[Rfam]
RNA sequence: UUACCACUCUGGCCUUUUGGCUUAGAUCAAGUGUAGUAUCUGUUCUUAAUAGUUUAACCACUAUUAUGAGGGCACCGCCCUCAUUUUUGGUUAUCUAAUUUUUGCCGCCCCAGUUCCUCGAGCUCUGCUUGCAACUCGAGGACGCGAUGACCUUGCUAUUGCAGUACCGGCUUGUGUCGUCGGGGGAUC
Number, nucleotide and partner (000 for none) at each position: 001u000002u000003a000004c000005c000006a000007c000008u026009c025010u024011g022012g021013c020014c019015u000016u000017u000018u000019g014020g013021c012022u011023u000024a010025g009026a008027u000028c000029a000030a000031g000032u000033g000034u000035a000036g000037u000038a000039u000040c000041u000042g000043u000044u000045c000046u000047u066048a065049a064050u063051a062052g061053u000054u000055u000056a000057a000058c000059c000060a000061c052062u051063a050064u049065u048066a047067u083068g082069a081070g080071g079072g078073c077074a000075c000076c000077g073078c072079c071080c070081u069082c068083a067084u000085u000086u000087u000088u000089g000090g000091u000092u000093a000094u000095c000096u000097a000098a000099u000100u000101u000102u000103u000104g000105c000106c000107g000108c000109c000110c000111c000112a000113g000114u000115u142116c141117c140118u139119c138120g137121a136122g135123c000124u000125c000126u133127g132128c000129u000130u000131g000132c127133a126134a000135c122136u121137c120138g119139a118140g117141g116142a115143c000144g000145c182146g181147a180148u179149g178150a177151c000152c174153u000154u000155g171156c170157u169158a000159u000160u000161g000162c000163a000164g000165u000166a000167c000168c000169g157170g156171c155172u000173u000174g152175u000176g000177u150178c149179g148180u147181c146182g145183g000184g000185g000186g000187a000188u000189c000
RNA: U2 spliceosomal RNA
Organism: Coprinopsis cinerea